[Rfam]
Nucleotides: 071
Stems, first nucleotide, its partner, number of pairs: 029048007
Number, partner (000 for none) and nucleotide at each position: 001000g002000g003000c004000c005000c006000a007000g008000c009000c010000a011000u012000u013000g014000c015000u016000a017000c018000a019000c020000a021000c022000a023000c024000g025000c026000a027000a028000a029048g030047g031046c032045c033044a034043u035042c036000a037000a038000c039000g040000a041000c042035g043034a044033u045032g046031g047030c048029c049000g050000c051000u052000c053000u054000u055000a056000c057000a058000g059000g060000c061000a062000a063000a064000g065000g066000c067000g068000c069000c070000a071000u